Background
Shown here is an 82-nucleotide RNA sequence from Pseudofrankia inefficax, a member of the family "Actinobacteria sRNA Ms_AS-4". The match comes from Rfam's covariance-model search (59 bits). Rfam 15.1 lists 207 matches to the family in 131 species. A reference for the family is Li et al. (2013), "Identification of small RNAs in Mycobacterium smegmatis using heterologous Hfq", RNA.

RNA sequence: CGCGGUGGAGACGUAGCGGGUCGGGUCGUCUCCGAACCCGGCGAGCACCCGGGCGGCGAGGACCGGUCCCAGGCCUGGCUGG
Numbered sequence: 001c002g003c004g005g006u007g008g009a010g011a012c013g014u015a016g017c018g019g020g021u022c023g024g025g026u027c028g029u030c031u032c033c034g035a036a037c038c039c040g041g042c043g044a045g046c047a048c049c050c051g052g053g054c055g056g057c058g059a060g061g062a063c064c065g066g067u068c069c070c071a072g073g074c075c076u077g078g079c080u081g082g
Base pairs, nucleotide, nucleotide: 010042012040013039018038019037021035022034023033024032025031055079057077059076060075061074063072